[Rfam]
RNA sequence: GUAGAGUAAUAAGAUAUCCCUCAUAUAUGCAAAGGAAUUGGCCUUUGUGUUUCUACCAGGACACCGUAAUGUCCGGACUAUGCGGGAAGAGCACUUCAUC
Dot-bracket structure: .................(((.((((...(((((((......)))))))........(.(((((......))))).)..)))).)))..............
Numbered sequence: 001g002u003a004g005a006g007u008a009a010u011a012a013g014a015u016a017u018c019c020c021u022c023a024u025a026u027a028u029g030c031a032a033a034g035g036a037a038u039u040g041g042c043c044u045u046u047g048u049g050u051u052u053c054u055a056c057c058a059g060g061a062c063a064c065c066g067u068a069a070u071g072u073c074c075g076g077a078c079u080a081u082g083c084g085g086g087a088a089g090a091g092c093a094c095u096u097c098a099u100c
Stems, first nucleotide, its partner, number of pairs: 018086003022082004029048007057076001059074005